[Rfam]
RNA sequence: UGUUUACAGUGUCGAAAUCCUAAAAGCAUGUCAUGCUUGCAUGUAAAUGCUUUACAGGAUUAGCGACACGCCCCUCCAAUGAGAAAAAAAGCAGGACAGAGUCAUGCGAUUUUCGAAUGGAGGGAGGAUUGUGGGAGCUGGAACAGCGGAACAAUCCGUAAACA
Numbered sequence: 001u002g003u004u005u006a007c008a009g010u011g012u013c014g015a016a017a018u019c020c021u022a023a024a025a026g027c028a029u030g031u032c033a034u035g036c037u038u039g040c041a042u043g044u045a046a047a048u049g050c051u052u053u054a055c056a057g058g059a060u061u062a063g064c065g066a067c068a069c070g071c072c073c074c075u076c077c078a079a080u081g082a083g084a085a086a087a088a089a090a091g092c093a094g095g096a097c098a099g100a101g102u103c104a105u106g107c108g109a110u111u112u113u114c115g116a117a118u119g120g121a122g123g124g125a126g127g128a129u130u131g132u133g134g135g136a137g138c139u140g141g142a143a144c145a146g147c148g149g150a151a152c153a154a155u156c157c158g159u160a161a162a163c164a
Base pairs, nucleotide, nucleotide: 001164002163003162004161005160006159007158010068011067012066013065016061017060018059019058020057021056023053024052025051026050027049028048029047032043033042034041035040072124073123074122075121076120077119079118080117083114084113085112086111091107092106093105095103096102097101126157127156128155129154130153131152132151137147138146139145140144